[Rfam]
RNA sequence: ACGUAUCUUCAGGGCAGGGUUUGAUUCCCUACUGGCGGUUAUAGCCCGCGAGCUUUUAUUUAAGCAGAUUCGGUUAAAUUCCGAAGCCAACAGUAUAGUCUGGAUGAAAGAAGAAAGUA
Numbered sequence: 001a002c003g004u005a006u007c008u009u010c011a012g013g014g015c016a017g018g019g020u021u022u023g024a025u026u027c028c029c030u031a032c033u034g035g036c037g038g039u040u041a042u043a044g045c046c047c048g049c050g051a052g053c054u055u056u057u058a059u060u061u062a063a064g065c066a067g068a069u070u071c072g073g074u075u076a077a078a079u080u081c082c083g084a085a086g087c088c089a090a091c092a093g094u095a096u097a098g099u100c101u102g103g104a105u106g107a108a109a110g111a112a113g114a115a116a117g118u119a
Stems, first nucleotide, its partner, number of pairs: 004116001006114005017029003031099002033089002035049004044087002052065003069085005091102003

The family of this 119-nucleotide RNA sequence from Clostridium saccharobutylicum is "FMN riboswitch aptamer (RFN element)". The base pairs follow the family's consensus structure, which is taken from published work.